[Rfam]
RNA: Fluoride riboswitch aptamer (crcB RNA motif)
RNA sequence: GAAUUAAAUGGCGAUGGUGUUCGCCUAUACGUAAGUUGAUGACACCUACCUUGUA
Numbered sequence: 001g002a003a004u005u006a007a008a009u010g011g012c013g014a015u016g017g018u019g020u021u022c023g024c025c026u027a028u029a030c031g032u033a034a035g036u037u038g039a040u041g042a043c044a045c046c047u048a049c050c051u052u053g054u055a
Base pairs, nucleotide, nucleotide: 010025011024012023013022016046017045018044019043020042021041